[Rfam]
The record is a 103-nucleotide RNA sequence, which matches "SAM-I/IV (S-adenosyl methionine) riboswitch aptamer" in Rfam.
RNA sequence: CACCAUCAUCAAGAAUGCAGAAGAACACUGCAUACCAACCGAGCAGCCAAGCAGCGGUGGUCAAUCGAUGAGGACCAAAAACGUCAAAAAAAUGGAAAUCACA
Number, nucleotide and partner (000 for none) at each position: 001c000002a000003c000004c000005a000006u071007c070008a069009u068010c067011a000012a000013g000014a000015a033016u032017g031018c030019a029020g028021a000022a000023g000024a000025a000026c000027a000028c020029u019030g018031c017032a016033u015034a061035c060036c059037a000038a000039c057040c056041g055042a000043g052044c051045a000046g000047c000048c000049a000050a000051g044052c043053a000054g000055c041056g040057g039058u000059g036060g035061u034062c000063a000064a000065u000066c000067g010068a009069u008070g007071a006072g000073g085074a084075c083076c000077a000078a000079a000080a000081a000082c000083g075084u074085c073086a000087a000088a000089a000090a000091a000092a000093u000094g000095g000096a000097a000098a000099u000100c000101a000102c000103a000
Its Rfam clan is "SAM clan".